[Rfam]
RNA sequence: CCUUUUUGAUCGCUGAAACUGUUUGGCUAACAGUACGGGGGAACCAAUUCUGACGAAUGUUAUUCGUCUUGGGGUGAAUCUUAAUAUAAAGAGGGGAUACUCUCGAUCCCUAAUCCGACAGCUAACCUCGUAAGCGUCAUAUGAAGAGAGGA
Numbered sequence: 001c002c003u004u005u006u007u008g009a010u011c012g013c014u015g016a017a018a019c020u021g022u023u024u025g026g027c028u029a030a031c032a033g034u035a036c037g038g039g040g041g042a043a044c045c046a047a048u049u050c051u052g053a054c055g056a057a058u059g060u061u062a063u064u065c066g067u068c069u070u071g072g073g074g075u076g077a078a079u080c081u082u083a084a085u086a087u088a089a090a091g092a093g094g095g096g097a098u099a100c101u102c103u104c105g106a107u108c109c110c111u112a113a114u115c116c117g118a119c120a121g122c123u124a125a126c127c128u129c130g131u132a133a134g135c136g137u138c139a140u141a142u143g144a145a146g147a148g149a150g151g152a
Stems, first nucleotide, its partner, number of pairs: 011136004018034006035131006045071002072116003080091003094110004
Dot-bracket structure: ..........((((...((((((.....))))))((((((....((.......................))(((.....(((......)))..((((.........))))...))).........)))))).))))................